This 154-nucleotide RNA from Chlorogloea sp. CCALA 695 belongs to the Rfam family "Ribosomal protein L10 leader". The organism belongs to Chlorogloea, within Bacteria.
RNA sequence: AAACUUCAUAGCCCAAAGCCGAAGACCGCAGGAGCGAUUACGCUUAAUAUCCUGCCGAGGUUUGUAUUUGUAAAUGCGAUCGCCCUUUUUUGGCAUCGUAUCAAAAAUAUGACUUCGUUACCCGGCAGAUUCUGUCGGGUUUUUGGUUUUCUAA
Numbered sequence: 001a002a003a004c005u006u007c008a009u010a011g012c013c014c015a016a017a018g019c020c021g022a023a024g025a026c027c028g029c030a031g032g033a034g035c036g037a038u039u040a041c042g043c044u045u046a047a048u049a050u051c052c053u054g055c056c057g058a059g060g061u062u063u064g065u066a067u068u069u070g071u072a073a074a075u076g077c078g079a080u081c082g083c084c085c086u087u088u089u090u091u092g093g094c095a096u097c098g099u100a101u102c103a104a105a106a107a108u109a110u111g112a113c114u115u116c117g118u119u120a121c122c123c124g125g126c127a128g129a130u131u132c133u134g135u136c137g138g139g140u141u142u143u144u145g146g147u148u149u150u151c152u153a154a
Base pairs, nucleotide, nucleotide: 028055029054030053031052032051033050034043035042036041121139122138123137124136125135126134127133128132